Shown here is a 169-nucleotide sequence from Triticum urartu, a member of the family "MIR2118 microRNA precursor family". Taxonomically the source falls in Triticum (Eukaryota, Streptophytina, commelinids, Triticeae). For this family Rfam cites "Characterization and expression profiles of miRNAs in rice seeds" (Xue et al., Nucleic Acids Res, 2009).
[Rfam]
RNA sequence: CCCUGGGGGGCCAACGGCUGGAGACGCCCUAAGAGCGGUGGACAUGGGAACAUGGAGGAAAGAAAAAAAAGGUCAUCCCUUUAGAAAUAGAGGUUGUGAUUUGUUUCGCAUUUUCCCAAUGCCUCCCAUGACUAUUGUUCUCAGAUGCUCCUUCCUCUUCCUUUCGACU
Numbered sequence: 001c002c003c004u005g006g007g008g009g010g011c012c013a014a015c016g017g018c019u020g021g022a023g024a025c026g027c028c029c030u031a032a033g034a035g036c037g038g039u040g041g042a043c044a045u046g047g048g049a050a051c052a053u054g055g056a057g058g059a060a061a062g063a064a065a066a067a068a069a070a071g072g073u074c075a076u077c078c079c080u081u082u083a084g085a086a087a088u089a090g091a092g093g094u095u096g097u098g099a100u101u102u103g104u105u106u107c108g109c110a111u112u113u114u115c116c117c118a119a120u121g122c123c124u125c126c127c128a129u130g131a132c133u134a135u136u137g138u139u140c141u142c143a144g145a146u147g148c149u150c151c152u153u154c155c156u157c158u159u160c161c162u163u164u165c166g167a168c169u
Stems, first nucleotide, its partner, number of pairs: 009160002013156001016153002021150003029144002032141006039134003043130007051121003055117001057116006